[Rfam]
Shown here is a 195-nucleotide sequence from Schistosoma mansoni, a member of the family "U2 spliceosomal RNA". Its family is annotated with pre-mRNA branch point binding, mRNA branch site recognition and U2 snRNP in the Gene Ontology. Rfam's curators write: U2 is a small nuclear RNA (snRNA) component of the spliceosome (involved in pre-mRNA splicing). Complementary binding between U2 snRNA (in an area lying towards the 5' end but 3' to hairpin I) and the branchpoint sequence (BPS) of the intron results the bulging out of an unpaired adenosine, on the BPS, which initiates a nucleophilic attack at the intronic 5' splice site, thus starting the first of two transesterification reactions that mediate splicing.
RNA sequence: AUUAUAUCUCGGCUCUCUGAGGUAAGAUCAUGAGUAGUAUCGGUUAUUUGCAGUGUAAUUUCUGUAACGGUCUCUAAACCGAGACAAAUGAAAUUACCUGUAUUUUUCACCUCCGGAUGGGUGCUGUGAGCUUGCACAAUCUCAUCCACGGGUCGGCCUCGUAUUACAUUUUUAUGAGUAAUCAGUUCACAUUAU
Numbered sequence: 001a002u003u004a005u006a007u008c009u010c011g012g013c014u015c016u017c018u019g020a021g022g023u024a025a026g027a028u029c030a031u032g033a034g035u036a037g038u039a040u041c042g043g044u045u046a047u048u049u050g051c052a053g054u055g056u057a058a059u060u061u062c063u064g065u066a067a068c069g070g071u072c073u074c075u076a077a078a079c080c081g082a083g084a085c086a087a088a089u090g091a092a093a094u095u096a097c098c099u100g101u102a103u104u105u106u107u108c109a110c111c112u113c114c115g116g117a118u119g120g121g122u123g124c125u126g127u128g129a130g131c132u133u134g135c136a137c138a139a140u141c142u143c144a145u146c147c148a149c150g151g152g153u154c155g156g157c158c159u160c161g162u163a164u165u166a167c168a169u170u171u172u173u174a175u176g177a178g179u180a181a182u183c184a185g186u187u188c189a190c191a192u193u194a195u
Stems, first nucleotide, its partner, number of pairs: 007027003011023001013021002048067006070085005115147007127138002130135001150188004155183001158178005